[Rfam]
RNA sequence: UCGGCCCCGGUUCACGGCCCCGCAAAUCCGCGCGGACGACCCGGCGCC
Numbered sequence: 001u002c003g004g005c006c007c008c009g010g011u012u013c014a015c016g017g018c019c020c021c022g023c024a025a026a027u028c029c030g031c032g033c034g035g036a037c038g039a040c041c042c043g044g045c046g047c048c
Stems, first nucleotide, its partner, number of pairs: 003048003007044004015038002018035002021032003
Dot-bracket structure: ..(((.((((....((.((.(((......))).)).))..)))).)))
Rfam assigns this 48-nucleotide RNA sequence from Streptomyces sp. CNS654 to the family "L31-Actinobacteria ribosomal protein leader". The family's RNA type in Rfam is cis-regulatory leader.